[Rfam]
RNA sequence: AUACUUACCUGGCAGAGGAGACACCAUGAUCAUGAAGGAGGUUUUCCCAGGGCAAGGCUUAUCCAUUCCACUCCAGAUGUGCUGACCCUGGGAUUUCCCCAAAUGUGGGAAACUCGACUGCAUAAUUUGUGGUAGUGGGAGACCGCAUUCGCGCUCUCCCC
Numbered sequence: 001a002u003a004c005u006u007a008c009c010u011g012g013c014a015g016a017g018g019a020g021a022c023a024c025c026a027u028g029a030u031c032a033u034g035a036a037g038g039a040g041g042u043u044u045u046c047c048c049a050g051g052g053c054a055a056g057g058c059u060u061a062u063c064c065a066u067u068c069c070a071c072u073c074c075a076g077a078u079g080u081g082c083u084g085a086c087c088c089u090g091g092g093a094u095u096u097c098c099c100c101a102a103a104u105g106u107g108g109g110a111a112a113c114u115c116g117a118c119u120g121c122a123u124a125a126u127u128u129g130u131g132g133u134a135g136u137g138g139g140a141g142a143c144c145g146c147a148u149u150c151g152c153g154c155u156c157u158c159c160c161c
Base pairs, nucleotide, nucleotide: 012121013120014119015118017047018046019045020044021043023042024041025040027038049089050088051087052086056083057082058081060079061078062077063076092115093114094112095111096110098108099107137160138159139158140157141156142155144153145152146151

This 161-nucleotide sequence from Castor canadensis belongs to the Rfam family "U1 spliceosomal RNA". The family has 100 seed sequences and 40,184 matches in Rfam 15.1. The organism belongs to Castor, within Eukaryota. Clan: U1 clan. Rfam describes the family as follows. U1 is a small nuclear RNA (snRNA) component of the spliceosome (involved in pre-mRNA splicing). Its 5' end forms complementary base pairs with the 5' splice junction, thus defining the 5' donor site of an intron. There are significant differences in sequence and secondary structure between metazoan and yeast U1 snRNAs, the latter being much longer (568 nucleotides as compared to 164 nucleotides in human). Nevertheless, secondary structure predictions suggest that all U1 snRNAs share a 'common core' consisting of helices I, II, the proximal region of III, and IV. This family does not contain the larger yeast sequences.